[Rfam]
RNA sequence: UAAUAUUUUAUCGAUAUAGAACACUCAUCUCGAUAAAAUGAUUUGAAAAACCA
Numbered sequence: 001u002a003a004u005a006u007u008u009u010a011u012c013g014a015u016a017u018a019g020a021a022c023a024c025u026c027a028u029c030u031c032g033a034u035a036a037a038a039u040g041a042u043u044u045g046a047a048a049a050a051c052c053a
Base pairs, nucleotide, nucleotide: 011033012032013031014030016028017027
Notes:
The record is a 53-nucleotide RNA sequence from Phtheirospermum japonicum, which matches "Plastid-atpF group II-D1 intron" in Rfam. About the family: Plastid atpF is a non-coding RNA (ncRNA) recognised in plastids. It has been reported in the intron group II-D1 region of ATP synthase (atpF) genes. Pairs were carried over by alignment from the consensus structure, which was predicted with LocARNA. For this family Rfam cites "Retrograde signaling in plants: A critical review focusing on the GUN pathway and beyond" (Richter et al., Plant Commun, 2023).